A member of the RNA family "Arthropod 7SK RNA" from Pediculus humanus, 244 nucleotides long. The family's RNA type in Rfam is non-coding RNA gene. Rfam 15.1 lists 229 matches to the family in 137 species. A reference for the family is Gruber et al. (2008), "Arthropod 7SK RNA", Mol Biol Evol. The sequence is in the family's curated seed alignment. Pairs were carried over by alignment from the consensus structure, which is taken from published work.
[Rfam]
RNA sequence: GGAAGUGUGUGUGUCUUAGUGAUGGCACUGCUGAACAUUGAUCGCUCCCACUUCAGGCAGAUCUGCUCAGUUAAGGUGUAGUCACGUGGUUUACUUUAGCAGUUCAGGGACCUCCCGAUGCUACAAAUCGCACGGUGGAUGGUCCCGAGGACUCCUCGAUUGCCGCGAUUCCAAAUUGUUAGGCGUGAGGUUAAUCGAACUUCCAUAUAUCGGUACUACUGUGUGUAGUUUGCCAGUUUUUUUC
Numbered sequence: 001g002g003a004a005g006u007g008u009g010u011g012u013g014u015c016u017u018a019g020u021g022a023u024g025g026c027a028c029u030g031c032u033g034a035a036c037a038u039u040g041a042u043c044g045c046u047c048c049c050a051c052u053u054c055a056g057g058c059a060g061a062u063c064u065g066c067u068c069a070g071u072u073a074a075g076g077u078g079u080a081g082u083c084a085c086g087u088g089g090u091u092u093a094c095u096u097u098a099g100c101a102g103u104u105c106a107g108g109g110a111c112c113u114c115c116c117g118a119u120g121c122u123a124c125a126a127a128u129c130g131c132a133c134g135g136u137g138g139a140u141g142g143u144c145c146c147g148a149g150g151a152c153u154c155c156u157c158g159a160u161u162g163c164c165g166c167g168a169u170u171c172c173a174a175a176u177u178g179u180u181a182g183g184c185g186u187g188a189g190g191u192u193a194a195u196c197g198a199a200c201u202u203c204c205a206u207a208u209a210u211c212g213g214u215a216c217u218a219c220u221g222u223g224u225g226u227a228g229u230u231u232g233c234c235a236g237u238u239u240u241u242u243u244c
Base pairs, nucleotide, nucleotide: 001204002203003202004201005200006199008197019085020084021083022082023081031070032069033068036065037064040063041062042061043060044058045057046056212234213233214232215229216228217227218226219225